[Rfam]
RNA: GlmZ RNA activator of glmS mRNA
RNA sequence: GUAGAUGCUCAUUCCAUCUCUUAUGUUCGCCAAAGGCCUCAUAAACCCAGGAAUGAUGCAGAGCCGUUUACCGGUGCUUAUCGUCCACCGAGAGAUGUCGCUAACGCCUCAUCAAACACCAUGGACAUAACGUUGAGUGAAGCACCUAUUUGUUGUCACAGACCUCUUUAACACCUGCCUUAUGGCAGGUGUUUUUUU
Numbered sequence: 001g002u003a004g005a006u007g008c009u010c011a012u013u014c015c016a017u018c019u020c021u022u023a024u025g026u027u028c029g030c031c032a033a034a035g036g037c038c039u040c041a042u043a044a045a046c047c048c049a050g051g052a053a054u055g056a057u058g059c060a061g062a063g064c065c066g067u068u069u070a071c072c073g074g075u076g077c078u079u080a081u082c083g084u085c086c087a088c089c090g091a092g093a094g095a096u097g098u099c100g101c102u103a104a105c106g107c108c109u110c111a112u113c114a115a116a117c118a119c120c121a122u123g124g125a126c127a128u129a130a131c132g133u134u135g136a137g138u139g140a141a142g143c144a145c146c147u148a149u150u151u152g153u154u155g156u157c158a159c160a161g162a163c164c165u166c167u168u169u170a171a172c173a174c175c176u177g178c179c180u181u182a183u184g185g186c187a188g189g190u191g192u193u194u195u196u197u198u
Stems, first nucleotide, its partner, number of pairs: 001064002006060003009056004015051001017050001019043001027036001073146007083126005094113004155163003170193010